[Rfam]
RNA sequence: CCGCAUUCUCAGGGCGGGGCGGAAUUCCCCACCGGCGGUAGGGGAGCAAUCCCGAGCCCGCGAGCGCCGACACCCCUUCGGGUGGUGCCGGGUCAGCAGAUCUGGUCAGACUCCAGAGCCGACGGUCACAGUCCGGAUGAAAGAGAAUGCGA
Numbered sequence: 001c002c003g004c005a006u007u008c009u010c011a012g013g014g015c016g017g018g019g020c021g022g023a024a025u026u027c028c029c030c031a032c033c034g035g036c037g038g039u040a041g042g043g044g045a046g047c048a049a050u051c052c053c054g055a056g057c058c059c060g061c062g063a064g065c066g067c068c069g070a071c072a073c074c075c076c077u078u079c080g081g082g083u084g085g086u087g088c089c090g091g092g093u094c095a096g097c098a099g100a101u102c103u104g105g106u107c108a109g110a111c112u113c114c115a116g117a118g119c120c121g122a123c124g125g126u127c128a129c130a131g132u133c134c135g136g137a138u139g140a141a142a143g144a145g146a147a148u149g150c151g152a
Base pairs, nucleotide, nucleotide: 003150004149005148006147007146008145009144010143017029018028019027031132032131033121034120035061036060037059038058056119057118064097065096101117102116103115104114105113123135124134125133
About this RNA
A member of the RNA family "FMN riboswitch aptamer (RFN element)" from Sulfitobacter sp. THAF37, 152 nucleotides long. A search with the family's covariance model found it, with a score of 108 bits. Gene Ontology term of the family: FMN binding.